The family of this 53-nucleotide RNA from Tetracentron sinense is "Plastid-atpF group II-D1 intron". The family's consensus secondary structure was predicted with LocARNA. For this family Rfam cites "Retrograde signaling in plants: A critical review focusing on the GUN pathway and beyond" (Richter et al., Plant Commun, 2023). Its family is annotated with Group II intron splicing in the Gene Ontology. Rfam describes the family as follows. Plastid atpF is a non-coding RNA (ncRNA) recognised in plastids. It has been reported in the intron group II-D1 region of ATP synthase (atpF) genes. The source organism's lineage runs through Eukaryota, Euphyllophyta, Mesangiospermae, Trochodendraceae and Tetracentron.
RNA sequence: GAAAUUCUUUUCAAUAUAGACCACUCAUGUCGAUAAAAUGAUCUAAACCAUUU
Numbered sequence: 001g002a003a004a005u006u007c008u009u010u011u012c013a014a015u016a017u018a019g020a021c022c023a024c025u026c027a028u029g030u031c032g033a034u035a036a037a038a039u040g041a042u043c044u045a046a047a048c049c050a051u052u053u
Stems, first nucleotide, its partner, number of pairs: 011033002014030004